RNA sequence: GUGAGGAGGGGCUGCAUGAACGAAGUUCAUAUUUAAUCAGCCCCGACGACCUGCCGUCUGGCGAAGGCGAGGGGGCGACACUAGAG
Numbered sequence: 001g002u003g004a005g006g007a008g009g010g011g012c013u014g015c016a017u018g019a020a021c022g023a024a025g026u027u028c029a030u031a032u033u034u035a036a037u038c039a040g041c042c043c044c045g046a047c048g049a050c051c052u053g054c055c056g057u058c059u060g061g062c063g064a065a066g067g068c069g070a071g072g073g074g075g076c077g078a079c080a081c082u083a084g085a086g
Base pairs, nucleotide, nucleotide: 008044009043010042011041012040013039016030017029018028019027020026053076054075055074057072058071061068062067
RNA: GA-cis RNA